Annotation:
A member of the RNA family "mir-208 microRNA precursor family" from Rattus norvegicus, 77 nucleotides long. The literature on the family includes a 2008 paper in Genome Res by Murchison et al., "Conservation of small RNA pathways in platypus". Rfam links the family to the GO terms miRNA-mediated post-transcriptional gene silencing and RISC complex. The family has 29 seed sequences and 563 matches in Rfam 15.1. The sequence is in the family's curated seed alignment. The organism belongs to Rattus, within Eukaryota.
[Rfam]
RNA sequence: UUUGACGGGUGAGCUUUUGGCCCGGGUUAUACCUGACUCUCACGUAUAAGACGAGCAAAAAGCUUGUUGGUCAGAGG
Dot-bracket structure: ..((((.((.((((((((.(..((..((((((...........))))))..))..).)))))))).)).))))....